[Rfam]
This 173-nucleotide RNA from Oceanobacillus sp. J11TS1 belongs to the Rfam family "Group II catalytic intron D1-D4-3". The organism belongs to Oceanobacillus, within Bacteria. It scores 120 bits against the family's covariance model.
RNA sequence: UCUGGGGUGACUCAGAAUCUGAAGGAAGUCGGCGGCAAAUCUCCGCCCCUAGAAACAUGAACUUUAUAGAUGGCUAGAUGCAUUUGGAUGAGGCUGCGUAACAAGUCAAAGUCCUUACUGCCAAAGGAUGCACCGAGUAAAUGAAAAGGGGACAUGGAGAGGAAGAGCGUGUA
Numbered sequence: 001u002c003u004g005g006g007g008u009g010a011c012u013c014a015g016a017a018u019c020u021g022a023a024g025g026a027a028g029u030c031g032g033c034g035g036c037a038a039a040u041c042u043c044c045g046c047c048c049c050u051a052g053a054a055a056c057a058u059g060a061a062c063u064u065u066a067u068a069g070a071u072g073g074c075u076a077g078a079u080g081c082a083u084u085u086g087g088a089u090g091a092g093g094c095u096g097c098g099u100a101a102c103a104a105g106u107c108a109a110a111g112u113c114c115u116u117a118c119u120g121c122c123a124a125a126g127g128a129u130g131c132a133c134c135g136a137g138u139a140a141a142u143g144a145a146a147a148g149g150g151g152a153c154a155u156g157g158a159g160a161g162g163a164a165g166a167g168c169g170u171g172u173a
Stems, first nucleotide, its partner, number of pairs: 001016006030171002036165001040160006046151005063145005073138003077134001079132006086114004092107004